Source information: A member of the RNA family "L2-Alphaproteobacteria ribosomal protein leader" from Dinoroseobacter shibae, 69 nucleotides long. The family's RNA type in Rfam is cis-regulatory leader.

RNA sequence: GGGGACCUUCGGGGCCCUUCAAACCGAGAAGCCGGGUUCUACCCGGCACGCAACAACGGAAGACAGAAA
Numbered sequence: 001g002g003g004g005a006c007c008u009u010c011g012g013g014g015c016c017c018u019u020c021a022a023a024c025c026g027a028g029a030a031g032c033c034g035g036g037u038u039c040u041a042c043c044c045g046g047c048a049c050g051c052a053a054c055a056a057c058g059g060a061a062g063a064c065a066g067a068a069a
Stems, first nucleotide, its partner, number of pairs: 001018004006014003031047007
A search with the family's covariance model found it, with a score of 57 bits.